[Rfam]
RNA sequence: AUAGUAUGCUAAGGUUGCAUAAGCGUGAGAAACUUAUACAUAGACAGCAGCCUUUAUUAAAACCUUCAAAUUGACGGGAAAACCUUAAAGUAAUUUUAACCAAACAAGAACGGUAACGUAAGGGUGAAUAACCUCUUGAGGCACAGGUAAUGAUUUGUGGUAUGGUAAAAUAAAAAUUAAUAACGAAAGAAAAUAGGUAAUCCGCAGCCAAGCACCUGUUUAGGUGUGCAGUUCAUCGACUAAAUGUAGGUUGACACUUCUUCGUGAAUGUGUUUAAGAUAUAGUCAAGCCUCAUCCGAAAGGGUGCA
Numbered sequence: 001a002u003a004g005u006a007u008g009c010u011a012a013g014g015u016u017g018c019a020u021a022a023g024c025g026u027g028a029g030a031a032a033c034u035u036a037u038a039c040a041u042a043g044a045c046a047g048c049a050g051c052c053u054u055u056a057u058u059a060a061a062a063c064c065u066u067c068a069a070a071u072u073g074a075c076g077g078g079a080a081a082a083c084c085u086u087a088a089a090g091u092a093a094u095u096u097u098a099a100c101c102a103a104a105c106a107a108g109a110a111c112g113g114u115a116a117c118g119u120a121a122g123g124g125u126g127a128a129u130a131a132c133c134u135c136u137u138g139a140g141g142c143a144c145a146g147g148u149a150a151u152g153a154u155u156u157g158u159g160g161u162a163u164g165g166u167a168a169a170a171u172a173a174a175a176a177u178u179a180a181u182a183a184c185g186a187a188a189g190a191a192a193a194u195a196g197g198u199a200a201u202c203c204g205c206a207g208c209c210a211a212g213c214a215c216c217u218g219u220u221u222a223g224g225u226g227u228g229c230a231g232u233u234c235a236u237c238g239a240c241u242a243a244a245u246g247u248a249g250g251u252u253g254a255c256a257c258u259u260c261u262u263c264g265u266g267a268a269u270g271u272g273u274u275u276a277a278g279a280u281a282u283a284g285u286c287a288a289g290c291c292u293c294a295u296c297c298g299a300a301a302g303g304g305u306g307c308a
Stems, first nucleotide, its partner, number of pairs: 001015002025035001027033001061252005067246002072206002075204004083197003207232002212227004236287001238286005254273004259268001261266001293306005

The family of this 308-nucleotide RNA from Arthrobotrys flagrans is "Group I catalytic intron".
The organism belongs to Arthrobotrys, within Eukaryota.
The literature on the family includes a 1990 paper in Annu Rev Biochem by Cech, "Self-splicing of group I introns".
Rfam's curators write: Group I catalytic introns are large self-splicing ribozymes. They catalyse their own excision from mRNA, tRNA and rRNA precursors in a wide range of organisms. The core secondary structure consists of 9 paired regions (P1-P9).